Description: Shown here is a 122-nucleotide sequence from Paenibacillus solanacearum, a member of the family "Glycine riboswitch aptamer". The organism belongs to Paenibacillus, within Bacteria.
RNA sequence: AUGAAGAUGUCGGGAGAGACUGCAGCGGAUACCGCAGCCGCCAGCAGCACCGAAGGAGCAAGUCGCGGGCCUUGCCGGCCGAAGGCGAUUAAUCUCUCAGGUAAACGUACCGCCGUUUGACG
Numbered sequence: 001a002u003g004a005a006g007a008u009g010u011c012g013g014g015a016g017a018g019a020c021u022g023c024a025g026c027g028g029a030u031a032c033c034g035c036a037g038c039c040g041c042c043a044g045c046a047g048c049a050c051c052g053a054a055g056g057a058g059c060a061a062g063u064c065g066c067g068g069g070c071c072u073u074g075c076c077g078g079c080c081g082a083a084g085g086c087g088a089u090u091a092a093u094c095u096c097u098c099a100g101g102u103a104a105a106c107g108u109a110c111c112g113c114c115g116u117u118u119g120a121c122g
Stems, first nucleotide, its partner, number of pairs: 006117004011112003020047004049102003052098002056096003062089005